[Rfam]
RNA: Bacterial large subunit ribosomal RNA, nucleotides 2729 to 2990
RNA sequence: GGAGAGUUGAGAGGAUUUGUCCCUAGUACGAGAGGACCGGGAUGAACGCACCUCUGGUGUAUCUGUUGUCCUGCCAAGGGCAUAGCAGGUUAGCUACGUGCGGAUCGGAUAACCGCUGAAGGCAUCUAAGCGGGAAGCCGGCCUCAAGAUGAGCUCUCCCAUCCCCUUGAGGGAGUAAGAACCCUGGAAGACCACCAGGUUGAUAGGCCAGAUCUGGAAGAGCGGUAACGCUCGUAGGAGACUGGUACUAAUUGUUCGAGGG
Numbered sequence: 001g002g003a004g005a006g007u008u009g010a011g012a013g014g015a016u017u018u019g020u021c022c023c024u025a026g027u028a029c030g031a032g033a034g035g036a037c038c039g040g041g042a043u044g045a046a047c048g049c050a051c052c053u054c055u056g057g058u059g060u061a062u063c064u065g066u067u068g069u070c071c072u073g074c075c076a077a078g079g080g081c082a083u084a085g086c087a088g089g090u091u092a093g094c095u096a097c098g099u100g101c102g103g104a105u106c107g108g109a110u111a112a113c114c115g116c117u118g119a120a121g122g123c124a125u126c127u128a129a130g131c132g133g134g135a136a137g138c139c140g141g142c143c144u145c146a147a148g149a150u151g152a153g154c155u156c157u158c159c160c161a162u163c164c165c166c167u168u169g170a171g172g173g174a175g176u177a178a179g180a181a182c183c184c185u186g187g188a189a190g191a192c193c194a195c196c197a198g199g200u201u202g203a204u205a206g207g208c209c210a211g212a213u214c215u216g217g218a219a220g221a222g223c224g225g226u227a228a229c230g231c232u233c234g235u236a237g238g239a240g241a242c243u244g245g246u247a248c249u250a251a252u253u254g255u256u257c258g259a260g261g262g
Stems, first nucleotide, its partner, number of pairs: 001159008011145004017045007047102005055096003062089005067082006106140003113133005162174003176259001179257004183199005204250003207246005213239002220233005